[Rfam]
RNA sequence: CCCAUGCACUAAUGAUGAUAUAAAUGUUGGUAGGGACAUCUGAGUUUUCAUUGAGGAUAUACCAACUUUUCUUCUUCUUGUCUGAUCACAUGGG
Numbered sequence: 001c002c003c004a005u006g007c008a009c010u011a012a013u014g015a016u017g018a019u020a021u022a023a024a025u026g027u028u029g030g031u032a033g034g035g036a037c038a039u040c041u042g043a044g045u046u047u048u049c050a051u052u053g054a055g056g057a058u059a060u061a062c063c064a065a066c067u068u069u070u071c072u073u074c075u076u077c078u079u080g081u082c083u084g085a086u087c088a089c090a091u092g093g094g
Base pairs, nucleotide, nucleotide: 001094002093003092004091005090